[Rfam]
Shown here is a 151-nucleotide RNA sequence from Artemisia annua, a member of the family "small nucleolar RNA snoR135". The family's consensus secondary structure was predicted with RNAalifold.

RNA sequence: AAAGCAGUGAUAUGUGUGUAUCGACUUAGUGCUAAAAUAUAUGCACUUUGAUCGAAAGAAAUCGCUGCAAAAAAGAUGUGACAUGGGGAAGGUGGGCAGUUGUGUUCCAUUAAUUAGUUGGAAUUUUUCAACAAUCAUUUUCCCCACAUUU
Number, nucleotide and partner (000 for none) at each position: 001a000002a000003a000004g068005c067006a066007g065008u064009g063010a062011u000012a000013u000014g000015u000016g046017u045018g044019u043020a042021u041022c000023g000024a000025c000026u000027u000028a000029g000030u000031g000032c000033u000034a000035a000036a000037a000038u000039a000040u000041a021042u020043g019044c018045a017046c016047u000048u000049u000050g000051a000052u000053c000054g000055a000056a000057a000058g000059a000060a000061a000062u010063c009064g008065c007066u006067g005068c004069a000070a000071a000072a000073a000074a000075g000076a000077u000078g000079u000080g000081a000082c000083a000084u000085g145086g144087g143088g142089a141090a140091g139092g138093u137094g136095g135096g000097c000098a000099g132100u131101u130102g129103u000104g000105u000106u000107c000108c000109a000110u000111u000112a000113a000114u000115u000116a000117g000118u000119u000120g000121g000122a000123a000124u000125u000126u000127u000128u000129c102130a101131a100132c099133a000134a000135u095136c094137a093138u092139u091140u090141u089142c088143c087144c086145c085146a000147c000148a000149u000150u000151u000
Rfam classes the family as an H/ACA-box small nucleolar RNA. Rfam links the family to the GO terms nucleolus and RNA processing. A reference for the family is Chen and Wu (2009), "Mining small RNA sequencing data: a new approach to identify small nucleolar RNAs in Arabidopsis", Nucleic Acids Res.